[Rfam]
Source information:
A member of the RNA family "mir-192/215 microRNA precursor family" from Castor canadensis, 77 nucleotides long. Pairs were carried over by alignment from the consensus structure, which was predicted with PFOLD. Rfam's curators write: This family represents the human microRNA (miRNA) precursors mir-192 and mir-215. Animal miRNAs are transcribed as ~70nt precursors and subsequently processed by the Dicer enzyme to give a ~22nt product. In this case the mature sequence comes from the 5' arm of the precursor. The extents of the hairpin precursors are not generally known and are estimated based on hairpin prediction. The source organism's lineage runs through Eukaryota, Opisthokonta, Eumetazoa, Chordata and Castor. The match comes from Rfam's covariance-model search (80 bits).
RNA sequence: ACAGGGCUCUGACCUAUGAAUUGACAGCCAGUGCACUGUCUCCCCCUGGCUGUCAAUUCCGUAGGUCACAGGUAUGU
Numbered sequence: 001a002c003a004g005g006g007c008u009c010u011g012a013c014c015u016a017u018g019a020a021u022u023g024a025c026a027g028c029c030a031g032u033g034c035a036c037u038g039u040c041u042c043c044c045c046c047u048g049g050c051u052g053u054c055a056a057u058u059c060c061g062u063a064g065g066u067c068a069c070a071g072g073u074a075u076g077u
Stems, first nucleotide, its partner, number of pairs: 001077003005073001007071002010068002013065004018059014